[Rfam]
RNA sequence: AUUUAAUAAGGGCAAAUUUUACGAAAGUAAAAGACGCAAAGCCACGGGCCUAAAACAUCAUUUGAUUGUCAUGGUAGCCGGGUUGCCAAG
Numbered sequence: 001a002u003u004u005a006a007u008a009a010g011g012g013c014a015a016a017u018u019u020u021a022c023g024a025a026a027g028u029a030a031a032a033g034a035c036g037c038a039a040a041g042c043c044a045c046g047g048g049c050c051u052a053a054a055a056c057a058u059c060a061u062u063u064g065a066u067u068g069u070c071a072u073g074g075u076a077g078c079c080g081g082g083u084u085g086c087c088a089a090g
Base pairs, nucleotide, nucleotide: 012037013036017032018031019030020029021028022027040084041083042082043081045080046079047078048075049074050073055069056068057067
c-di-GMP-I riboswitch aptamer: a 90-nucleotide RNA sequence from Cytobacillus depressus. Lineage of the source: Bacteria > Bacillati > Caryophanales > Bacillaceae > Cytobacillus.